[Rfam]
RNA sequence: GCGUUUACUCGGGUUUCCCGAUUUGCGAACAGUCCAAAGCACUGUGUUCGUUGUCGUCGAAACCUGCCUUAAACGC
Numbered sequence: 001g002c003g004u005u006u007a008c009u010c011g012g013g014u015u016u017c018c019c020g021a022u023u024u025g026c027g028a029a030c031a032g033u034c035c036a037a038a039g040c041a042c043u044g045u046g047u048u049c050g051u052u053g054u055c056g057u058c059g060a061a062a063c064c065u066g067c068c069u070u071a072a073a074c075g076c
Base pairs, nucleotide, nucleotide: 001076002075003074004073010066011065012064013063014062015061016060017059027049028048029047030046031045
A member of the RNA family "mir-981 microRNA precursor family" from Elysia chlorotica, 76 nucleotides long. Taxonomically the source falls in Elysia (Eukaryota, Metazoa, Heterobranchia, Euthyneura). The literature on the family includes a 2009 paper in BMC Genomics by Li et al., "Direct sequencing and expression analysis of a large number of miRNAs in Aedes aegypti and a multi-species survey of novel mosquito miRNAs". The base pairs follow the family's consensus structure, which was predicted with RNAalifold. The match comes from Rfam's covariance-model search (52 bits). Its family is annotated with RISC complex and miRNA-mediated post-transcriptional gene silencing in the Gene Ontology.